[Rfam]
Overview
A member of the RNA family "Manganese Mn2+ riboswitch aptamer (yybP-ykoY)" from Comamonas flocculans, 171 nucleotides long. Rfam 15.1 lists 1,126 matches to the family in 1,062 species. Lineage of the source: Bacteria > Pseudomonadati > Burkholderiales > Comamonadaceae > Comamonas. Rfam links the family to the GO term manganese ion binding. A reference for the family is Argaman et al. (2001), "Novel small RNA-encoding genes in the intergenic regions of Escherichia coli", Curr Biol.

RNA sequence: CGCGCGGUCAUUGGGGAGUAGCCGCGCUUUCCUUGCGGAAGUGGCUGACGUCAACAUCCUUGGCCCGCAGGCCAUGGCGUCAGCGGUGCGCCACCUGGCAAGACCUUUGACUGCCGUGCACCCGCCCUGGCCGGAGGUGCGCGGCGGUCAAUCGUUCUUGAUCCGGCCCGG
Numbered sequence: 001c002g003c004g005c006g007g008u009c010a011u012u013g014g015g016g017a018g019u020a021g022c023c024g025c026g027c028u029u030u031c032c033u034u035g036c037g038g039a040a041g042u043g044g045c046u047g048a049c050g051u052c053a054a055c056a057u058c059c060u061u062g063g064c065c066c067g068c069a070g071g072c073c074a075u076g077g078c079g080u081c082a083g084c085g086g087u088g089c090g091c092c093a094c095c096u097g098g099c100a101a102g103a104c105c106u107u108u109g110a111c112u113g114c115c116g117u118g119c120a121c122c123c124g125c126c127c128u129g130g131c132c133g134g135a136g137g138u139g140c141g142c143g144g145c146g147g148u149c150a151a152u153c154g155u156u157c158u159u160g161a162u163c164c165g166g167c168c169c170g171g
Stems, first nucleotide, its partner, number of pairs: 026042003044084010061074005091171001